[Rfam]
RNA sequence: CCUUUGGAGUGUUACAGCAAACGAAAGUAGUAUAUCCUUUGGGAUUACAAAAUCGGACACAUUGAAAAAGGAA
Numbered sequence: 001c002c003u004u005u006g007g008a009g010u011g012u013u014a015c016a017g018c019a020a021a022c023g024a025a026a027g028u029a030g031u032a033u034a035u036c037c038u039u040u041g042g043g044a045u046u047a048c049a050a051a052a053u054c055g056g057a058c059a060c061a062u063u064g065a066a067a068a069a070g071g072a073a
Stems, first nucleotide, its partner, number of pairs: 001071005009060005022055003030048003035044002
RAGATH-18 RNA: a 73-nucleotide RNA. The sequence is in the family's curated seed alignment. Actinobacteria, Firmicutes, Fusobacteria, Thermotogae (1 example).